[Rfam]
RNA: Betaproteobacteria toxic small RNA
Organism: Burkholderia orbicola
RNA sequence: UGUCUCCUCCAUGUCUCCUCUGAUAUGGAUUCAGCCCGCCACUUAGGCGGGCUUUUUUUU
Numbered sequence: 001u002g003u004c005u006c007c008u009c010c011a012u013g014u015c016u017c018c019u020c021u022g023a024u025a026u027g028g029a030u031u032c033a034g035c036c037c038g039c040c041a042c043u044u045a046g047g048c049g050g051g052c053u054u055u056u057u058u059u060u
Stems, first nucleotide, its partner, number of pairs: 008029008033053008